[Rfam]
RNA sequence: GAUACAUCAAGAGUAGUGGAGGGACAGGCCCUAUGAAGCUCGGCAACCACCUAUAAGGGAAAGGUGCUAAUUCCUACAAGGAAAUACCUUGGGAGAUGUUCA
Numbered sequence: 001g002a003u004a005c006a007u008c009a010a011g012a013g014u015a016g017u018g019g020a021g022g023g024a025c026a027g028g029c030c031c032u033a034u035g036a037a038g039c040u041c042g043g044c045a046a047c048c049a050c051c052u053a054u055a056a057g058g059g060a061a062a063g064g065u066g067c068u069a070a071u072u073c074c075u076a077c078a079a080g081g082a083a084a085u086a087c088c089u090u091g092g093g094a095g096a097u098g099u100u101c102a
Base pairs, nucleotide, nucleotide: 004099005098006097007096008095013041015040016039017038021031022030023029026075027074028073042068043067044066045065047064048063050059051058052057072094077091078090079089080088081087
The record is a 102-nucleotide sequence from Orenia metallireducens, which matches "SAM riboswitch aptamer (S box leader)" in Rfam. The SAM riboswitch is found upstream of a number of genes which code for proteins involved in methionine or cysteine biosynthesis in Gram-positive bacteria. On this family, see Huang et al., Nucleic Acids Res 2016: "A critical base pair in k-turns determines the conformational class adopted, and correlates with biological function". Pairs were carried over by alignment from the consensus structure, which is taken from published work.